[Rfam]
RNA sequence: UUGUUUCUUCAGGGCAGGGUGAAAUUCCCGACCGGCGGUGAUAGUCCGCGAAUCGAAAGAUUGAACUGGUGUGAUUCCAGUACCGACAGUAAAGUCUGGAUGGGAGAAGAAAACA
Numbered sequence: 001u002u003g004u005u006u007c008u009u010c011a012g013g014g015c016a017g018g019g020u021g022a023a024a025u026u027c028c029c030g031a032c033c034g035g036c037g038g039u040g041a042u043a044g045u046c047c048g049c050g051a052a053u054c055g056a057a058a059g060a061u062u063g064a065a066c067u068g069g070u071g072u073g074a075u076u077c078c079a080g081u082a083c084c085g086a087c088a089g090u091a092a093a094g095u096c097u098g099g100a101u102g103g104g105a106g107a108a109g110a111a112a113a114c115a
Base pairs, nucleotide, nucleotide: 004112005111006110007109008108009107010106017029018028019027031095032094033085034084035049036048037047038046044083045082052061053060054059065081066080067079068078069077087098088097089096
RNA: FMN riboswitch aptamer (RFN element)
Organism: Ancylomarina salipaludis